[Rfam]
RNA sequence: UUGGCUUCCGGUUCACGUCCACCAUCCCGGUGAUGACGACCCGGCGGCA
Numbered sequence: 001u002u003g004g005c006u007u008c009c010g011g012u013u014c015a016c017g018u019c020c021a022c023c024a025u026c027c028c029g030g031u032g033a034u035g036a037c038g039a040c041c042c043g044g045c046g047g048c049a
Base pairs, nucleotide, nucleotide: 004048006047008044009043010042011041016038017037018036019035020032021031022030
L31-Actinobacteria ribosomal protein leader: a 49-nucleotide RNA from Dermacoccus nishinomiyaensis. Lineage of the source: Bacteria > Bacillati > Actinomycetes > Micrococcales > Dermacoccus. A search with the family's covariance model found it, with a score of 40 bits. Pairs were carried over by alignment from the consensus structure, which is taken from published work.